[Rfam]
Shown here is a 49-nucleotide RNA sequence from Stenotrophomonas panacihumi, a member of the family "Xanthomonadaceae sRNA sX5".
Lineage of the source: Bacteria > Pseudomonadati > Pseudomonadota > Gammaproteobacteria > Stenotrophomonas.
It is annotated as a small RNA.
The family's consensus secondary structure was predicted with RNAalifold.
RNA sequence: AGAACGCCGUUUGCUUCCCUCCCCUUUCGGCUUCGGACUGGCGGGCUUC
Numbered sequence: 001a002g003a004a005c006g007c008c009g010u011u012u013g014c015u016u017c018c019c020u021c022c023c024c025u026u027u028c029g030g031c032u033u034c035g036g037a038c039u040g041g042c043g044g045g046c047u048u049c
Stems, first nucleotide, its partner, number of pairs: 007044004013038001015037003023030002